mir-2807 microRNA precursor family: an 84-nucleotide RNA from Bombyx mori. Pairs were carried over by alignment from the consensus structure, which was predicted with RNAalifold. The organism belongs to Bombyx, within Eukaryota. Rfam 15.1 lists 5,120 matches to the family in 8 species. The match comes from Rfam's covariance-model search (64 bits).
[Rfam]
RNA sequence: UUAACUUAAAUUUGUAUGGAGUUGAACAGUGCCCCUAGCGGCAAACGAAGGGAAGGUGCUUCAACUACAUACAAAUUUGAGUUA
Numbered sequence: 001u002u003a004a005c006u007u008a009a010a011u012u013u014g015u016a017u018g019g020a021g022u023u024g025a026a027c028a029g030u031g032c033c034c035c036u037a038g039c040g041g042c043a044a045a046c047g048a049a050g051g052g053a054a055g056g057u058g059c060u061u062c063a064a065c066u067a068c069a070u071a072c073a074a075a076u077u078u079g080a081g082u083u084a
Stems, first nucleotide, its partner, number of pairs: 008078009018068001020066007027058002033052003038046001